Rfam assigns this 70-nucleotide RNA sequence to the family "potC RNA".
The sequence is in the family's curated seed alignment.
[Rfam]
RNA sequence: ACAAUUGUGCCUAUAAUCCUCUCUUCUAGGAUUCUUACCCUUUCCUUAAAAAGAUUAUAGGCAUAAAAAA
Numbered sequence: 001a002c003a004a005u006u007g008u009g010c011c012u013a014u015a016a017u018c019c020u021c022u023c024u025u026c027u028a029g030g031a032u033u034c035u036u037a038c039c040c041u042u043u044c045c046u047u048a049a050a051a052a053g054a055u056u057a058u059a060g061g062c063a064u065a066a067a068a069a070a
Stems, first nucleotide, its partner, number of pairs: 006065010017054002028046004
Dot-bracket structure: .....((((((((((.((.........((((...........))))......)).)))))))))).....